RNA sequence: GGGUUGAUGAUGAUGACAUAAAUUAUCUUAGCGGAUUUCAGUGAGAUUGCAAAUCUAUGAUCUGAUUGUUGUUACACACACUGAAACCC
Numbered sequence: 001g002g003g004u005u006g007a008u009g010a011u012g013a014u015g016a017c018a019u020a021a022a023u024u025a026u027c028u029u030a031g032c033g034g035a036u037u038u039c040a041g042u043g044a045g046a047u048u049g050c051a052a053a054u055c056u057a058u059g060a061u062c063u064g065a066u067u068g069u070u071g072u073u074a075c076a077c078a079c080a081c082u083g084a085a086a087c088c089c
Base pairs, nucleotide, nucleotide: 001089002088003087004086005085
RNA: Small nucleolar RNA R11/Z151